[Rfam]
Small nucleolar RNA SNORD127: an 86-nucleotide RNA from Nyctibius bracteatus. Rfam classes the family as a C/D-box small nucleolar RNA. On this family, see Yang et al., Nucleic Acids Res 2006: "snoSeeker: an advanced computational package for screening of guide and orphan snoRNA genes in the human genome". The source organism's lineage runs through Eukaryota, Chordata, Euteleostomi, Dinosauria and Nyctibius. Its family is annotated with nucleolus and RNA processing in the Gene Ontology.
Nucleotides: 086
Base pairs, nucleotide, nucleotide: 002085003084004083005082006081007080
Number, partner (000 for none) and nucleotide at each position: 001000c002085g003084g004083c005082a006081a007080c008000a009000a010000u011000g012000a013000u014000g015000a016000c017000a018000g019000g020000a021000g022000u023000c024000g025000u026000g027000c028000c029000u030000g031000u032000a033000c034000g035000u036000a037000a038000u039000g040000u041000c042000u043000c044000a045000u046000u047000a048000c049000u050000g051000c052000a053000u054000g055000g056000a057000g058000a059000c060000a061000g062000c063000a064000g065000u066000c067000c068000c069000u070000c071000u072000a073000a074000g075000c076000u077000g078000a079000c080007g081006u082005u083004g084003c085002c086000c